[Rfam]
RNA sequence: GUUAUUUGAGGUGGUAAACUUCGCAGCGACCACACGCCGAUGGCACGACAGGGGCGACCCGAGAGAUGCAGGAGAAUGCUGCGCCUGCCAAAUAAC
Numbered sequence: 001g002u003u004a005u006u007u008g009a010g011g012u013g014g015u016a017a018a019c020u021u022c023g024c025a026g027c028g029a030c031c032a033c034a035c036g037c038c039g040a041u042g043g044c045a046c047g048a049c050a051g052g053g054g055c056g057a058c059c060c061g062a063g064a065g066a067u068g069c070a071g072g073a074g075a076a077u078g079c080u081g082c083g084c085c086u087g088c089c090a091a092a093u094a095a096c
Stems, first nucleotide, its partner, number of pairs: 001096008011033005023082005035063001036055003068088005